[Rfam]
RNA sequence: UCUGCACCUAGAGGCAUUGUAGGUGCGGCUGGUGAGUGACAGGUGCACCAAUAUGUGGUAGAGAGAAGAAAGGAUAUGUGUAUGCUCAGCGUUCUGAUCUAUGAACAUCUGAAUGAUUAGUAGCCUAGCAUU
Numbered sequence: 001u002c003u004g005c006a007c008c009u010a011g012a013g014g015c016a017u018u019g020u021a022g023g024u025g026c027g028g029c030u031g032g033u034g035a036g037u038g039a040c041a042g043g044u045g046c047a048c049c050a051a052u053a054u055g056u057g058g059u060a061g062a063g064a065g066a067a068g069a070a071a072g073g074a075u076a077u078g079u080g081u082a083u084g085c086u087c088a089g090c091g092u093u094c095u096g097a098u099c100u101a102u103g104a105a106c107a108u109c110u111g112a113a114u115g116a117u118u119a120g121u122a123g124c125c126u127a128g129c130a131u132u
Stems, first nucleotide, its partner, number of pairs: 002061004007055001009053002013049002019046003024041002028037002068129001071126003075122003083115002086112004091106004
RNA: Small nucleolar RNA SNORA17